[Rfam]
RNA sequence: GACGGUCUUCGGUGGUGGCUUCCGCAAGCGGCAGCUUGCGGUGGCUUCGAUCGACGGCCGUG
Numbered sequence: 001g002a003c004g005g006u007c008u009u010c011g012g013u014g015g016u017g018g019c020u021u022c023c024g025c026a027a028g029c030g031g032c033a034g035c036u037u038g039c040g041g042u043g044g045c046u047u048c049g050a051u052c053g054a055c056g057g058c059c060g061u062g
Stems, first nucleotide, its partner, number of pairs: 002061006009054005017046004022041008
Dot-bracket structure: .((((((.(((((...((((.((((((((....)))))))).))))...))))).)))))).